[Rfam]
RNA: sucA-II RNA
Organism: Pseudomonas protegens
RNA sequence: CCACGGCGCGGGCUUCAACCCGCGUCAUGGCUCUAACCUGAGCAGCAGCUCACAAAGUGGCUGCUCUAUAUUUUGAAGAAAUGAGACAAGCAGGGGCAUCCGGGCUGGUACCCGGACUAUCAGCGUGAUCCUAAGUGGCUUGUUUUGGUCGCUGCAUUCGGACUUCUGCAAGCUUGCUCGGUGUCGUCGCCGGUGGUGUUCCCCUAACCGAGGGUGACCA
Numbered sequence: 001c002c003a004c005g006g007c008g009c010g011g012g013c014u015u016c017a018a019c020c021c022g023c024g025u026c027a028u029g030g031c032u033c034u035a036a037c038c039u040g041a042g043c044a045g046c047a048g049c050u051c052a053c054a055a056a057g058u059g060g061c062u063g064c065u066c067u068a069u070a071u072u073u074u075g076a077a078g079a080a081a082u083g084a085g086a087c088a089a090g091c092a093g094g095g096g097c098a099u100c101c102g103g104g105c106u107g108g109u110a111c112c113c114g115g116a117c118u119a120u121c122a123g124c125g126u127g128a129u130c131c132u133a134a135g136u137g138g139c140u141u142g143u144u145u146u147g148g149u150c151g152c153u154g155c156a157u158u159c160g161g162a163c164u165u166c167u168g169c170a171a172g173c174u175u176g177c178u179c180g181g182u183g184u185c186g187u188c189g190c191c192g193g194u195g196g197u198g199u200u201c202c203c204c205u206a207a208c209c210g211a212g213g214g215u216g217a218c219c220a
Stems, first nucleotide, its partner, number of pairs: 001030003005026008040066006048058003092205005097198002099116006117196005123190003127185002130181002134178005139172005147164004